[Rfam]
Nucleotides: 068
Base pairs, nucleotide, nucleotide: 005062008059009058011030012029013028015027016026017025018024035056037054040052041051043049044048
Number, partner (000 for none) and nucleotide at each position: 001000u002000u003000g004000g005062c006000g007000g008059c009058g010000g011030g012029g013028u014000c015027g016026a017025u018024u019000u020000c021000g022000c023000g024018g025017g026016u027015c028013a029012c030011c031000a032000c033000c034000a035056g036000a037054u038000a039000g040052u041051c042000a043049c044048g045000c046000a047000g048044c049043g050000c051041g052040a053000g054037g055000g056035c057000g058009u059008g060000c061000a062005g063000g064000u065000g066000c067000u068000c